[Rfam]
RNA sequence: AUUGCAAGUUCAAGGCCAUAGCAGAAAUACUCAUGGCACGGCCUGUCAGAUUCGAAAGAAUCUGUGAAUUCUGUU
Numbered sequence: 001a002u003u004g005c006a007a008g009u010u011c012a013a014g015g016c017c018a019u020a021g022c023a024g025a026a027a028u029a030c031u032c033a034u035g036g037c038a039c040g041g042c043c044u045g046u047c048a049g050a051u052u053c054g055a056a057a058g059a060a061u062c063u064g065u066g067a068a069u070u071c072u073g074u075u
Base pairs, nucleotide, nucleotide: 014043015042016041017040020075021074022073023072024071025070026069028038047064048063049062050061051060052059053058
RNA: Mammalian CPEB3 ribozyme
Organism: Crocodylus porosus